[Rfam]
RNA sequence: GGGUCAGCAGCACACCCAGGCCUUGCCGCACGACGCAGAGCGUCGUGAGCUAAACCUGCUA
Numbered sequence: 001g002g003g004u005c006a007g008c009a010g011c012a013c014a015c016c017c018a019g020g021c022c023u024u025g026c027c028g029c030a031c032g033a034c035g036c037a038g039a040g041c042g043u044c045g046u047g048a049g050c051u052a053a054a055c056c057u058g059c060u061a
Base pairs, nucleotide, nucleotide: 001017002016003015004014029047030046031045032044033043034042035041036040
RNA: COG3860 RNA